The family of this 394-nucleotide sequence from Magnetospira sp. QH-2 is "Bacterial RNase P class A". NCBI's taxonomy places the organism under Bacteria, Pseudomonadati, Pseudomonadota, Alphaproteobacteria, Magnetospira. The match comes from Rfam's covariance-model search (303 bits).
[Rfam]
RNA sequence: CCAGACGGCUGGAUGGUCGCCUUGGGCCUUGUGCCUGGGGAGGAAAGUCCGGGCUCCACGGAAAUACGGUGCCGGGUAACGCCCGGCGGGGGCGACCCUAGGGAAAGUGCCACAGAAAGCAAACCGCCGCGCCGGGUUUCGACCCGCCUCGGCAAGGGUGAAAGGGUGCGGUAAGAGCGCACCGCUCCCCCGGCGACGGGGGAGGCAUGGUAAACCCCACCGGGAGCAAGACCGAAUAGGGAUGACAGGCCGAUUUCGAAUCGGCAGGCGCAUUUCCGCGCUGUCGUCCGGGUGUGUCGCGCGAGGCGUCCGGUAACGGGCGUCCCAGACGAAUGGCCAUCCAUCGCUUCUCCGGAAGCGGGGACAGAACCCGGCUUACAGGCCGUCUGGCACC
Dot-bracket structure: ((((((((((((((((((.((((((((.....))))))))....[[[.[[[[[((((.....[[..((((((((((.....)))))(((((....)))).)((...(((((............((((((.(.(((((....))))).).))))..)).......((((((.......))))))(((((((((....)))))))).)..)))..)))))))))))))...(((.......((((((.....................(((((..]]..))))).))))))......)))......((((((((....))))))))..........)))))))............................]]]]]]]].).))))))))))....